RNA: Glycine riboswitch aptamer
Organism: Thioclava indica
RNA sequence: GGGUGGAAUACGGGAGACGCUGCGGCAAAAUCCGCAGGGCCGAAGGAGCAACCGCCCCGGUAAACUCUCAGGCAAAAGGACCGCAUUUCACCA
Numbered sequence: 001g002g003g004u005g006g007a008a009u010a011c012g013g014g015a016g017a018c019g020c021u022g023c024g025g026c027a028a029a030a031u032c033c034g035c036a037g038g039g040c041c042g043a044a045g046g047a048g049c050a051a052c053c054g055c056c057c058c059g060g061u062a063a064a065c066u067c068u069c070a071g072g073c074a075a076a077a078g079g080a081c082c083g084c085a086u087u088u089c090a091c092c093a
Base pairs, nucleotide, nucleotide: 006088007087008086009085011083012082013081020037021036022035023034039073040072041071042069043068046067047066048065052060053059